[Rfam]
Shown here is a 64-nucleotide RNA from Strigops habroptila, a member of the family "MAT2A 3'UTR stem loop A". Rfam classes the family as a cis-regulatory element. The source organism's lineage runs through Eukaryota, Sarcopterygii, Dipnotetrapodomorpha, Archelosauria and Strigops. Pairs were carried over by alignment from the consensus structure, which is taken from published work. The match comes from Rfam's covariance-model search (43 bits).
RNA sequence: GCUUUUCCCCCCACCCCAGCGGGCGUAGGCUACAGAGAAGCCCCUGGGCUCUGGGGGCAAGAGC
Numbered sequence: 001g002c003u004u005u006u007c008c009c010c011c012c013a014c015c016c017c018a019g020c021g022g023g024c025g026u027a028g029g030c031u032a033c034a035g036a037g038a039a040g041c042c043c044c045u046g047g048g049c050u051c052u053g054g055g056g057g058c059a060a061g062a063g064c
Stems, first nucleotide, its partner, number of pairs: 001064003008057003012053002019045001022042003025033002
Dot-bracket structure: (((....(((.((.....(..(((((.....))......)))..)......)).)))....)))